[Rfam]
Shown here is an 82-nucleotide sequence from Thermoclostridium caenicola, a member of the family "Glycine riboswitch aptamer".

RNA sequence: GAACUCUGGAGAGACCGUUAAGGCGCCGAAGGGGCAAGUUCCGCCAUGGAAUGUAUCUCUCAGGCAAAAGGACAGAGUGCGG
Numbered sequence: 001g002a003a004c005u006c007u008g009g010a011g012a013g014a015c016c017g018u019u020a021a022g023g024c025g026c027c028g029a030a031g032g033g034g035c036a037a038g039u040u041c042c043g044c045c046a047u048g049g050a051a052u053g054u055a056u057c058u059c060u061c062a063g064g065c066a067a068a069a070g071g072a073c074a075g076a077g078u079g080c081g082g
Stems, first nucleotide, its partner, number of pairs: 001080001003078006015023002025065003028061002032059003038052004
Background:
The match comes from Rfam's covariance-model search (54 bits). Its family is annotated with glycine biosynthetic process in the Gene Ontology.